Source information:
A member of the RNA family "Small nucleolar RNA snoR8a" from Theobroma cacao, 93 nucleotides long. The literature on the family includes a 2001 paper in RNA by Brown et al., "Multiple snoRNA gene clusters from Arabidopsis". Lineage of the source: Eukaryota > Euphyllophyta > Magnoliopsida > malvids > Theobroma.

RNA sequence: AAAUUGACGAUGAUUAUAACAAUAAUUCCUCGUUCUGACUUGUUUGAUUUGAGCAUGAUAAAUCUCUUAUUACACUCAUAGAAUCUGAGUUAU
Dot-bracket structure: ..((.((..................................................................................))))
The family's RNA type in Rfam is C/D-box small nucleolar RNA.